[Rfam]
Description
This 141-nucleotide RNA sequence from Micromonospora rosaria belongs to the Rfam family "c-di-AMP riboswitch aptamer (ydaO/yuaA leader)". The source organism's lineage runs through Bacteria, Actinomycetes, Micromonosporales, Micromonosporaceae and Micromonospora. The match comes from Rfam's covariance-model search (85 bits). Rfam links the family to the GO terms cyclic-di-AMP binding and regulation of gene expression.
RNA sequence: CGGCCGACGCCGCCGAGUCGCCCACCCAGGGCGAGCCGGGGACCCAGGUACGCCGGGGUGAAUCCGCAGUCCACUGCGGUAGGGCGUCCCCUUCCGCCCGAACCCGUCAGCUAACCCGGUAGGCGGUUCCGGAGAAGGAGU
Numbered sequence: 001c002g003g004c005c006g007a008c009g010c011c012g013c014c015g016a017g018u019c020g021c022c023c024a025c026c027c028a029g030g031g032c033g034a035g036c037c038g039g040g041g042a043c044c045c046a047g048g049u050a051c052g053c054c055g056g057g058g059u060g061a062a063u064c065c066g067c068a069g070u071c072c073a074c075u076g077c078g079g080u081a082g083g084g085c086g087u088c089c090c091c092u093u094c095c096g097c098c099c100g101a102a103c104c105c106g107u108c109a110g111c112u113a114a115c116c117c118g119g120u121a122g123g124c125g126g127u128u129c130c131g132g133a134g135a136a137g138g139a140g141u
Stems, first nucleotide, its partner, number of pairs: 011125004018034005035120006045055001056105003064079004082099004